Shown here is a 163-nucleotide RNA sequence from Ramlibacter humi, a member of the family "Manganese Mn2+ riboswitch aptamer (yybP-ykoY)". NCBI's taxonomy places the organism under Bacteria, Pseudomonadati, Pseudomonadota, Comamonadaceae, Ramlibacter. The match comes from Rfam's covariance-model search (75 bits). About the family: This RNA was originally discovered in E. coli during a large scale screen and was named SraF. The family was later found to exist upstream of related families of protein genes in many bacteria, including the the yybP and ykoK genes in B. subtilis.
RNA sequence: CAAUCGCCCGAGUCAUUGGGGAGUAGCCGCCCUCCAUCGCGAGAGGGGCCUGCGUCAACAGACUUGAACCGCAAGGUUCAUGGCGCAGGCGGACACCCUGCCGGCCCGCAACGGGCCGGCGGAGAACUUGGCGAGACCUUUGGCUGUGCCGCCUCCGCUUUCC
Numbered sequence: 001c002a003a004u005c006g007c008c009c010g011a012g013u014c015a016u017u018g019g020g021g022a023g024u025a026g027c028c029g030c031c032c033u034c035c036a037u038c039g040c041g042a043g044a045g046g047g048g049c050c051u052g053c054g055u056c057a058a059c060a061g062a063c064u065u066g067a068a069c070c071g072c073a074a075g076g077u078u079c080a081u082g083g084c085g086c087a088g089g090c091g092g093a094c095a096c097c098c099u100g101c102c103g104g105c106c107c108g109c110a111a112c113g114g115g116c117c118g119g120c121g122g123a124g125a126a127c128u129u130g131g132c133g134a135g136a137c138c139u140u141u142g143g144c145u146g147u148g149c150c151g152c153c154u155c156c157g158c159u160u161u162c163c
Base pairs, nucleotide, nucleotide: 031046032045033044048090049089050088051087052086053085054084055083056082057081065080066079067078068077069076091163092162093161095159097157